[Rfam]
RNA sequence: GGUCAUGAGUGCCAGCGCGAAGCCCCGGCUCGCUGGCCGGCAACCCUCCAACCGCGGUGGGGUGCCCCGGGUGAGGACCUGGCGACCGGUGCCGCACCCGCGGACCAGUCGCAAGCGCGGGCG
Numbered sequence: 001g002g003u004c005a006u007g008a009g010u011g012c013c014a015g016c017g018c019g020a021a022g023c024c025c026c027g028g029c030u031c032g033c034u035g036g037c038c039g040g041c042a043a044c045c046c047u048c049c050a051a052c053c054g055c056g057g058u059g060g061g062g063u064g065c066c067c068c069g070g071g072u073g074a075g076g077a078c079c080u081g082g083c084g085a086c087c088g089g090u091g092c093c094g095c096a097c098c099c100g101c102g103g104a105c106c107a108g109u110c111g112c113a114a115g116c117g118c119g120g121g122c123g
Base pairs, nucleotide, nucleotide: 001079002078003077004076009038011037012036013035014034015033016032021030022029039066040065041064044062045061046060048057049056082112083111084110085109086108088106089105090104
SAM (S-adenosyl methionine) riboswitch aptamer: a 123-nucleotide RNA from Nostocoides sp. HKS02. It scores 97 bits against the family's covariance model. On this family, see Weinberg et al., RNA 2008: "The aptamer core of SAM-IV riboswitches mimics the ligand-binding site of SAM-I riboswitches". The organism belongs to Nostocoides, within Bacteria.